Annotation
The record is a 96-nucleotide RNA, which matches "PhotoRC-II RNA" in Rfam. The sequence is in the family's curated seed alignment. The family's consensus secondary structure is taken from published work. By type it is a cis-regulatory element.
[Rfam]
RNA sequence: GAUAAUUAAAAUACUCCCCAAACCGAGACCUACAGGGAGAAUAAAUUACGUCUCUCAUAUCCGUAAGUGAAGGGAUUUACGGAAAUAUAAGUUUCG
Numbered sequence: 001g002a003u004a005a006u007u008a009a010a011a012u013a014c015u016c017c018c019c020a021a022a023c024c025g026a027g028a029c030c031u032a033c034a035g036g037g038a039g040a041a042u043a044a045a046u047u048a049c050g051u052c053u054c055u056c057a058u059a060u061c062c063g064u065a066a067g068u069g070a071a072g073g074g075a076u077u078u079a080c081g082g083a084a085a086u087a088u089a090a091g092u093u094u095c096g
Stems, first nucleotide, its partner, number of pairs: 014039005025054005061082007